RNA sequence: UGAAUGAACAUCAUUGAGUGCAGCGUUGAUGUGAUUUACUUUUUUCAUUGUUGAAUGGAUUAAAGCAAUUUACAUCAAUGUUGGCUCAAUUAUGCUUUUC
Numbered sequence: 001u002g003a004a005u006g007a008a009c010a011u012c013a014u015u016g017a018g019u020g021c022a023g024c025g026u027u028g029a030u031g032u033g034a035u036u037u038a039c040u041u042u043u044u045u046c047a048u049u050g051u052u053g054a055a056u057g058g059a060u061u062a063a064a065g066c067a068a069u070u071u072a073c074a075u076c077a078a079u080g081u082u083g084g085c086u087c088a089a090u091u092a093u094g095c096u097u098u099u100c
Stems, first nucleotide, its partner, number of pairs: 006097002009094003013090007021083008030074003
RNA: MIR397 microRNA precursor family